[Rfam]
Overview
Rfam assigns this 75-nucleotide RNA sequence from Microlunatus endophyticus to the family "Fluoride riboswitch aptamer (crcB RNA motif)". The organism belongs to Microlunatus, within Bacteria.

RNA sequence: GUCGGACGUGGCGAUGGAGUCCGCCGGAGACAACGUUGUCUCGAACCGCAUUGGGCUGAUGACACCUAGCAGCGU
Numbered sequence: 001g002u003c004g005g006a007c008g009u010g011g012c013g014a015u016g017g018a019g020u021c022c023g024c025c026g027g028a029g030a031c032a033a034c035g036u037u038g039u040c041u042c043g044a045a046c047c048g049c050a051u052u053g054g055g056c057u058g059a060u061g062a063c064a065c066c067u068a069g070c071a072g073c074g075u
Base pairs, nucleotide, nucleotide: 010025011024012023013022016066017065019063020062021061048056049055